[Rfam]
RNA sequence: CGUGUGGUGUGCGGCAAUAAUGACUGUAUAGCGACACGACAUUAGAGAGGU
Numbered sequence: 001c002g003u004g005u006g007g008u009g010u011g012c013g014g015c016a017a018u019a020a021u022g023a024c025u026g027u028a029u030a031g032c033g034a035c036a037c038g039a040c041a042u043u044a045g046a047g048a049g050g051u
Stems, first nucleotide, its partner, number of pairs: 001038005007032002011027004015022001
The record is a 51-nucleotide sequence from Limnobaculum parvum, which matches "L31-Gammaproteobacteria ribosomal protein leader" in Rfam. Lineage of the source: Bacteria > Pseudomonadota > Gammaproteobacteria > Budviciaceae > Limnobaculum. For this family Rfam cites "Discovery of 20 novel ribosomal leader candidates in bacteria and archaea" (Eckert and Weinberg, BMC Microbiol, 2020). The match comes from Rfam's covariance-model search (48 bits).